[Rfam]
RNA: Actino-pnp RNA
RNA sequence: UCUGGUCCUCGGUAGUGGCCCUCGGGUGCCCUGAAGGCCCCCGCGGGCUUCGAUCGAAGACCGGG
Numbered sequence: 001u002c003u004g005g006u007c008c009u010c011g012g013u014a015g016u017g018g019c020c021c022u023c024g025g026g027u028g029c030c031c032u033g034a035a036g037g038c039c040c041c042c043g044c045g046g047g048c049u050u051c052g053a054u055c056g057a058a059g060a061c062c063g064g065g
Base pairs, nucleotide, nucleotide: 001065002064003063004062005061006060007059009057010056011055012054013053017049018048019047020046021045023043024042025041026040028038029037